[Rfam]
RNA: Yersinia sRNA 155(RyfD)
Organism: Klebsiella pneumoniae
RNA sequence: CAAGACGAUCCAGAAGGCAAACUUAUUUUUCACAUAGUUCGGGUCUUUAACCUUGAAUAAUUGAGGGAUGACCUCAUUUAAUCUCCAGUAGCAAAUUUGACCUGUUUAUGGGAGGAGUUAUGCGUCUGGAUCGUCUUAC
Numbered sequence: 001c002a003a004g005a006c007g008a009u010c011c012a013g014a015a016g017g018c019a020a021a022c023u024u025a026u027u028u029u030u031c032a033c034a035u036a037g038u039u040c041g042g043g044u045c046u047u048u049a050a051c052c053u054u055g056a057a058u059a060a061u062u063g064a065g066g067g068a069u070g071a072c073c074u075c076a077u078u079u080a081a082u083c084u085c086c087a088g089u090a091g092c093a094a095a096u097u098u099g100a101c102c103u104g105u106u107u108a109u110g111g112g113a114g115g116a117g118u119u120a121u122g123c124g125u126c127u128g129g130a131u132c133g134u135c136u137u138a139c
Stems, first nucleotide, its partner, number of pairs: 002137011015125001017123003020119003023042002028037002051066006067078004082115005088109003